[Rfam]
RNA: TPP riboswitch aptamer (THI element)
RNA sequence: CCACGAGGCUAGGGGUGCCCGCCGACAGGGCUGGGCUGAGAAACACCCUUGGAACCUGAACCGGAUCAUACCGGCGGAGGGAAGCUUCGGAGGGUCGUC
Numbered sequence: 001c002c003a004c005g006a007g008g009c010u011a012g013g014g015g016u017g018c019c020c021g022c023c024g025a026c027a028g029g030g031c032u033g034g035g036c037u038g039a040g041a042a043a044c045a046c047c048c049u050u051g052g053a054a055c056c057u058g059a060a061c062c063g064g065a066u067c068a069u070a071c072c073g074g075c076g077g078a079g080g081g082a083a084g085c086u087u088c089g090g091a092g093g094g095u096c097g098u099c
Base pairs, nucleotide, nucleotide: 006087007086008085009084010083011049012048013047014046016043017036018035019034020033021032055080056079057078061074062073063072064071